This 56-nucleotide RNA from Aureibacillus halotolerans belongs to the Rfam family "Bacillus-plasmid RNA". NCBI's taxonomy places the organism under Bacteria, Bacillota, Caryophanales, Bacillaceae, Aureibacillus. It scores 32 bits against the family's covariance model. The family's consensus secondary structure is taken from published work.

RNA sequence: AUUGUCAAUGAGAAGCGGGGCGAAGGGAGCGUUAAGAAAUUGACAAUCAGUAGGCA
Number, nucleotide and partner (000 for none) at each position: 001a047002u046003u045004g044005u043006c042007a041008a040009u039010g000011a000012g000013a000014a000015g000016c000017g000018g000019g000020g000021c000022g000023a000024a000025g000026g000027g000028a000029g000030c000031g000032u000033u000034a000035a000036g000037a000038a000039a009040u008041u007042g006043a005044c004045a003046a002047u001048c000049a000050g000051u000052a000053g000054g000055c000056a000